Description:
This 124-nucleotide RNA sequence from Aliirhizobium cellulosilyticum belongs to the Rfam family "Alphaproteobacterial ar14". A search with the family's covariance model found it, with a score of 103 bits. Smr14C2 was renamed NfeR1 (Nodule Formation Efficiency RNA) highly expressed in salt stress and during the symbiotic interaction on legume roots. It is annotated as a small RNA.
RNA sequence: AGUCAUCGAACGACGCACUCCUCCUCCCAGUGUCGUUCGAUACGGAUCGACAACAUCCUCCUCCUCCCAGUUGUCGAUCAAGUUUAAAGCCUGGCGCAUCCUCCUCCCGCGCCAGGCUUUUCGC
Numbered sequence: 001a002g003u004c005a006u007c008g009a010a011c012g013a014c015g016c017a018c019u020c021c022u023c024c025u026c027c028c029a030g031u032g033u034c035g036u037u038c039g040a041u042a043c044g045g046a047u048c049g050a051c052a053a054c055a056u057c058c059u060c061c062u063c064c065u066c067c068c069a070g071u072u073g074u075c076g077a078u079c080a081a082g083u084u085u086a087a088a089g090c091c092u093g094g095c096g097c098a099u100c101c102u103c104c105u106c107c108c109g110c111g112c113c114a115g116g117c118u119u120u121u122c123g124c
Stems, first nucleotide, its partner, number of pairs: 006040003010036007045079010087119011